[Rfam]
RNA sequence: GUAUAAGCAAAAGUUUGAAUUUUAGAUUCAUUCAUUAAAUGAUGUAUGUAGUCUACUACAUACAUCAUUUAAUGAAUGAAUCUAAAAUUCAAACUUUUGCUUAUAC
Numbered sequence: 001g002u003a004u005a006a007g008c009a010a011a012a013g014u015u016u017g018a019a020u021u022u023u024a025g026a027u028u029c030a031u032u033c034a035u036u037a038a039a040u041g042a043u044g045u046a047u048g049u050a051g052u053c054u055a056c057u058a059c060a061u062a063c064a065u066c067a068u069u070u071a072a073u074g075a076a077u078g079a080a081u082c083u084a085a086a087a088u089u090c091a092a093a094c095u096u097u098u099g100c101u102u103a104u105a106c
Stems, first nucleotide, its partner, number of pairs: 002105006009098005015092011027080018049058003
The family of this 106-nucleotide sequence from Medicago truncatula is "MIR2593 microRNA precursor family". The base pairs follow the family's consensus structure, which was predicted with RNAalifold. NCBI's taxonomy places the organism under Eukaryota, Fabales, Fabaceae, Papilionoideae, Medicago. It scores 105 bits against the family's covariance model. Rfam links the family to the GO terms miRNA-mediated post-transcriptional gene silencing and RISC complex. Rfam 15.1 lists 1,262 matches to the family in 6 species.